Background
This 70-nucleotide RNA sequence from Rodentolepis nana belongs to the Rfam family "HDV ribozyme from F. prausnitzii". The base pairs follow the family's consensus structure, which is taken from published work.

RNA sequence: GGUGUGCAGUAGACUUACCUUCACGUGGUGCACACUGGGCAACGUAUACUCAUACGGCAAAAAUGUCUAU
Numbered sequence: 001g002g003u004g005u006g007c008a009g010u011a012g013a014c015u016u017a018c019c020u021u022c023a024c025g026u027g028g029u030g031c032a033c034a035c036u037g038g039g040c041a042a043c044g045u046a047u048a049c050u051c052a053u054a055c056g057g058c059a060a061a062a063a064u065g066u067c068u069a070u
Base pairs, nucleotide, nucleotide: 001036002035003034004033005032006031007030017029018028019027043056044055045054046053047052
For this family Rfam cites "Widespread occurrence of self-cleaving ribozymes" (Webb et al., Science, 2009). Rfam 15.1 lists 3,803 matches to the family in 91 species.